Rfam assigns this 61-nucleotide sequence to the family "L31-Actinobacteria ribosomal protein leader". Rfam's curators put it in the seed alignment. Rfam classes the family as a cis-regulatory leader.
RNA sequence: CGAGCUCCGGUUCACGCUGCACCACCGCCCGCCGCACGGCGGGCACGGCGACCCGGCGGCU
Numbered sequence: 001c002g003a004g005c006u007c008c009g010g011u012u013c014a015c016g017c018u019g020c021a022c023c024a025c026c027g028c029c030c031g032c033c034g035c036a037c038g039g040c041g042g043g044c045a046c047g048g049c050g051a052c053c054c055g056g057c058g059g060c061u
Stems, first nucleotide, its partner, number of pairs: 003061003007056004015050005